[Rfam]
RNA sequence: CCUAUGGAGAGUACAAGAACUUGUGAGUAGAUUGAUAUUUAUAUCAUCCAAAGCAUAUACGUUGAAGCAGUAA
Numbered sequence: 001c002c003u004a005u006g007g008a009g010a011g012u013a014c015a016a017g018a019a020c021u022u023g024u025g026a027g028u029a030g031a032u033u034g035a036u037a038u039u040u041a042u043a044u045c046a047u048c049c050a051a052a053g054c055a056u057a058u059a060c061g062u063u064g065a066a067g068c069a070g071u072a073a
Base pairs, nucleotide, nucleotide: 002070003069005067009060011058012057013056022055023054024053030048031047032046034045035044
Record summary
The family of this 73-nucleotide RNA is "RAGATH-18 RNA". By type it is a small RNA.